Overview
Plant signal recognition particle RNA: a 298-nucleotide RNA sequence from Nicotiana tabacum. Lineage of the source: Eukaryota > Euphyllophyta > asterids > Solanales > Nicotiana. The match comes from Rfam's covariance-model search (150 bits). By type it is a non-coding RNA gene. Gene Ontology terms of the family: SRP-dependent cotranslational protein targeting to membrane, signal sequence recognition and signal recognition particle, endoplasmic reticulum targeting. The base pairs follow the family's consensus structure, which is taken from published work.
RNA sequence: CUUGUAUAUACUCUCUUGCUUCGCAUGUUUGAAGUCUAAUAUCAUAAAUUAUUCCAUGUCUCAUCGGACAGGGAUUGGUGGUCUGAUAUUUGGCCUGCUCUUUCUAAGCACAGAGUUGGGUCAUGUGGCCCAAGCGAUGGCAUGGGCUACUGGACUCCUAAUGUGGGGCGGACAAGCGUGAGGCUGGUUUCACAGAGCAACGAACAGUGUCCGCUCUGUGCAGUGGAAGGAUAACGGGCUGGUGUCUUCCAAGCCCAACAAAUGACUGAUGGUCUGCUCCAAUUAAACAGCCAUUUUU
Numbered sequence: 001c002u003u004g005u006a007u008a009u010a011c012u013c014u015c016u017u018g019c020u021u022c023g024c025a026u027g028u029u030u031g032a033a034g035u036c037u038a039a040u041a042u043c044a045u046a047a048a049u050u051a052u053u054c055c056a057u058g059u060c061u062c063a064u065c066g067g068a069c070a071g072g073g074a075u076u077g078g079u080g081g082u083c084u085g086a087u088a089u090u091u092g093g094c095c096u097g098c099u100c101u102u103u104c105u106a107a108g109c110a111c112a113g114a115g116u117u118g119g120g121u122c123a124u125g126u127g128g129c130c131c132a133a134g135c136g137a138u139g140g141c142a143u144g145g146g147c148u149a150c151u152g153g154a155c156u157c158c159u160a161a162u163g164u165g166g167g168g169c170g171g172a173c174a175a176g177c178g179u180g181a182g183g184c185u186g187g188u189u190u191c192a193c194a195g196a197g198c199a200a201c202g203a204a205c206a207g208u209g210u211c212c213g214c215u216c217u218g219u220g221c222a223g224u225g226g227a228a229g230g231a232u233a234a235c236g237g238g239c240u241g242g243u244g245u246c247u248u249c250c251a252a253g254c255c256c257a258a259c260a261a262a263u264g265a266c267u268g269a270u271g272g273u274c275u276g277c278u279c280c281a282a283u284u285a286a287a288c289a290g291c292c293a294u295u296u297u298u
Base pairs, nucleotide, nucleotide: 001034002033003032004011005010022031023030038297039296041294042293045290049286050285051284052282053281058274061272062271063270064269065268066267067266069264070263071256072255073254075252076251077250078249080247081246084244085243090242091241092240093239094238095237096236097235099230100229102228103227104226105225106224108221109220110219111218112217113216114215115214116213118157119156120155121154122153125150126149127148128147129146130145131144132143134141135140158163165211166210168208169207177202178201179200184195185194186193